[Rfam]
RNA sequence: UUCUUUCGGGUCUGUAGUUGCGGGGGCGCCAGACGCCCCUCAGUCCAAGGCAGAUGCGGUCGAAAGGACCCACGUAAGCGCGUUCACGCGCCAUGCCGUACGCCCCGUCACGUGGCGGAACACGGCGGCAUGCGGAUGCGUGCGCACGAGCAUGGCGUAUCCUAGAAGUAAGACGCACCCUCCGGCGAUUUCUUGCGGCACCACGCCGCACCGGGGGAGAGGGCGGCGCGGGCUCAUCCGCAAAACCCCGGUGCGCGGGUGUGGGGGCAAAGACUAGGUCAGCCGGAAGAG
Numbered sequence: 001u002u003c004u005u006u007c008g009g010g011u012c013u014g015u016a017g018u019u020g021c022g023g024g025g026g027c028g029c030c031a032g033a034c035g036c037c038c039c040u041c042a043g044u045c046c047a048a049g050g051c052a053g054a055u056g057c058g059g060u061c062g063a064a065a066g067g068a069c070c071c072a073c074g075u076a077a078g079c080g081c082g083u084u085c086a087c088g089c090g091c092c093a094u095g096c097c098g099u100a101c102g103c104c105c106c107g108u109c110a111c112g113u114g115g116c117g118g119a120a121c122a123c124g125g126c127g128g129c130a131u132g133c134g135g136a137u138g139c140g141u142g143c144g145c146a147c148g149a150g151c152a153u154g155g156c157g158u159a160u161c162c163u164a165g166a167a168g169u170a171a172g173a174c175g176c177a178c179c180c181u182c183c184g185g186c187g188a189u190u191u192c193u194u195g196c197g198g199c200a201c202c203a204c205g206c207c208g209c210a211c212c213g214g215g216g217g218a219g220a221g222g223g224c225g226g227c228g229c230g231g232g233c234u235c236a237u238c239c240g241c242a243a244a245a246c247c248c249c250g251g252u253g254c255g256c257g258g259g260u261g262u263g264g265g266g267g268c269a270a271a272g273a274c275u276a277g278g279u280c281a282g283c284c285g286g287a288a289g290a291g
Base pairs, nucleotide, nucleotide: 001291002290003289004288005287006286007285008284009283012282013281014280015276016275017274018273019272047262049260050060053161054160055159056158057157058156069155070154153269174255175254176253177252178251179217180216181215182214183213184212185211221248222247223246228241229240230239231238232237